Notes
The family of this 90-nucleotide RNA sequence is "PGK RNA". The base pairs follow the family's consensus structure, which is taken from published work.

RNA sequence: GUGAAGUCUUAUCAAAUCUAAGUAUUACAAUUAGUAUUGAGAGAGAAACUCAAGUGAUAAGAGGCAAAACUAAUUACUGAUAAUUUUUAG
Numbered sequence: 001g002u003g004a005a006g007u008c009u010u011a012u013c014a015a016a017u018c019u020a021a022g023u024a025u026u027a028c029a030a031u032u033a034g035u036a037u038u039g040a041g042a043g044a045g046a047a048a049c050u051c052a053a054g055u056g057a058u059a060a061g062a063g064g065c066a067a068a069a070c071u072a073a074u075u076a077c078u079g080a081u082a083a084u085u086u087u088u089a090g
Stems, first nucleotide, its partner, number of pairs: 008061006037053005070090004076084001
It is one of the family's seed sequences.